[Rfam]
RNA sequence: AUCUGCUAUAUUGAUUUGGAUAGUCCUUCUUAGCCAUCUUUAGCUCCCGGUUUUUAAGGACUAUCUUUUUUUAUGCUCCCCUU
Numbered sequence: 001a002u003c004u005g006c007u008a009u010a011u012u013g014a015u016u017u018g019g020a021u022a023g024u025c026c027u028u029c030u031u032a033g034c035c036a037u038c039u040u041u042a043g044c045u046c047c048c049g050g051u052u053u054u055u056a057a058g059g060a061c062u063a064u065c066u067u068u069u070u071u072u073a074u075g076c077u078c079c080c081c082u083u
Stems, first nucleotide, its partner, number of pairs: 019065009032052004